[Rfam]
RNA sequence: UGAUACAAGGGUACCAAAGUCCAAACUCGUUCAUGCUUGCAUGAUAAGAGGUUGGACCUUGGUACCCGCCAAACAUGAGAAAGUAGCGAUUUAUGCAAUAAAUCCGCGGAUUUCGAAUGUUUGCAGGAUUGUGAAAGUUGUGAAACAACGGAGCAAUCCGUAUCA
Numbered sequence: 001u002g003a004u005a006c007a008a009g010g011g012u013a014c015c016a017a018a019g020u021c022c023a024a025a026c027u028c029g030u031u032c033a034u035g036c037u038u039g040c041a042u043g044a045u046a047a048g049a050g051g052u053u054g055g056a057c058c059u060u061g062g063u064a065c066c067c068g069c070c071a072a073a074c075a076u077g078a079g080a081a082a083g084u085a086g087c088g089a090u091u092u093a094u095g096c097a098a099u100a101a102a103u104c105c106g107c108g109g110a111u112u113u114c115g116a117a118u119g120u121u122u123g124c125a126g127g128a129u130u131g132u133g134a135a136a137g138u139u140g141u142g143a144a145a146c147a148a149c150g151g152a153g154c155a156a157u158c159c160g161u162a163u164c165a
Base pairs, nucleotide, nucleotide: 001165002164003163004162005161006160010066011065012064013063016060017059019057020056021055022054023053024052026050027049028048030046031044032043033042034041035040070123071122072121073120074119075118076117079114080113081112082111086107087106088104089103090102091101092100126159127158128157129156130155131154132153137149138148139147140146
RNA: Clostridiales-1 RNA